The family of this 102-nucleotide RNA sequence from Sporosarcina pasteurii is "Purine riboswitch aptamer".
Pairs were carried over by alignment from the consensus structure, which is taken from published work.

RNA sequence: GACAUUCUAAUGACAUUCACUCAUAUAAUCGCGGGAAUAUGGCCUGCAAGUUUCUACCGAUUUGCCUUAAACAAAUCGACUAUGAGUAGCAAUGGAAAGAGC
Numbered sequence: 001g002a003c004a005u006u007c008u009a010a011u012g013a014c015a016u017u018c019a020c021u022c023a024u025a026u027a028a029u030c031g032c033g034g035g036a037a038u039a040u041g042g043c044c045u046g047c048a049a050g051u052u053u054c055u056a057c058c059g060a061u062u063u064g065c066c067u068u069a070a071a072c073a074a075a076u077c078g079a080c081u082a083u084g085a086g087u088a089g090c091a092a093u094g095g096a097a098a099g100a101g102c
Stems, first nucleotide, its partner, number of pairs: 019087007029049001031047005058078007